The record is a 98-nucleotide RNA sequence from Nocardia mangyaensis, which matches "Glycine riboswitch aptamer" in Rfam.
RNA sequence: CGCCGUCGUGCGGGAGAGUCCUGGAUUCGUGAGUCCGGGCGCCGAAGGAGCAGCACCUCCCCGUCAAUCUCUCAGGCAACAGGGACCGCGCGAUGAUU
Numbered sequence: 001c002g003c004c005g006u007c008g009u010g011c012g013g014g015a016g017a018g019u020c021c022u023g024g025a026u027u028c029g030u031g032a033g034u035c036c037g038g039g040c041g042c043c044g045a046a047g048g049a050g051c052a053g054c055a056c057c058u059c060c061c062c063g064u065c066a067a068u069c070u071c072u073c074a075g076g077c078a079a080c081a082g083g084g085a086c087c088g089c090g091c092g093a094u095g096a097u098u
Stems, first nucleotide, its partner, number of pairs: 006093008020039004041077003044073002048071003055064002
NCBI's taxonomy places the organism under Bacteria, Bacillati, Actinomycetota, Mycobacteriales, Nocardia. The match comes from Rfam's covariance-model search (60 bits).